Shown here is a 95-nucleotide sequence from Prunus persica, a member of the family "MIR535 microRNA precursor family". Its family is annotated with miRNA-mediated post-transcriptional gene silencing and RISC complex in the Gene Ontology. For this family Rfam cites "Conservation and divergence of microRNAs and their functions in Euphorbiaceous plants" (Zeng et al., Nucleic Acids Res, 2010).
[Rfam]
RNA sequence: GACGUUGUUUGACAACGAGAGAGAGCACGCUUGUCGGCACCCAUGAAAGGGCCAUGGAUGUUUACGGGCGUGCUCUCUCUUGUUGUCAUGCAGUC
Numbered sequence: 001g002a003c004g005u006u007g008u009u010u011g012a013c014a015a016c017g018a019g020a021g022a023g024a025g026c027a028c029g030c031u032u033g034u035c036g037g038c039a040c041c042c043a044u045g046a047a048a049g050g051g052c053c054a055u056g057g058a059u060g061u062u063u064a065c066g067g068g069c070g071u072g073c074u075c076u077c078u079c080u081u082g083u084u085g086u087c088a089u090g091c092a093g094u095c
Base pairs, nucleotide, nucleotide: 010088011087012086013085014084016082017081020078021077023075025073026072027071028070029069030068031067032066033065034064
Dot-bracket structure: .........(((((.((..((.(.((((((((((.............................)))))))))).).))..)).))))).......
The sequence is in the family's curated seed alignment.